Vault RNA: a 102-nucleotide sequence from Albula glossodonta. It scores 71 bits against the family's covariance model. The source organism's lineage runs through Eukaryota, Bilateria, Actinopterygii, Albulidae and Albula. The family's RNA type in Rfam is non-coding RNA gene. The literature on the family includes a 2009 paper in Mol Biol Evol by Stadler et al., "Evolution of Vault RNAs". This family of RNAs are found as part of the enigmatic vault ribonucleoprotein complex.
RNA sequence: GCGCCGGUUUAGCUCAGUGGUUACUUCGUAUGUCAAACUUUCAGUUUCGCCUUACUUCACCCUCUCCGGAGGGUCGAACCACGGGCGCCGUCCGGCGUUUUG
Numbered sequence: 001g002c003g004c005c006g007g008u009u010u011a012g013c014u015c016a017g018u019g020g021u022u023a024c025u026u027c028g029u030a031u032g033u034c035a036a037a038c039u040u041u042c043a044g045u046u047u048c049g050c051c052u053u054a055c056u057u058c059a060c061c062c063u064c065u066c067c068g069g070a071g072g073g074u075c076g077a078a079c080c081a082c083g084g085g086c087g088c089c090g091u092c093c094g095g096c097g098u099u100u101u102g
Stems, first nucleotide, its partner, number of pairs: 002097006012086004017082004025078004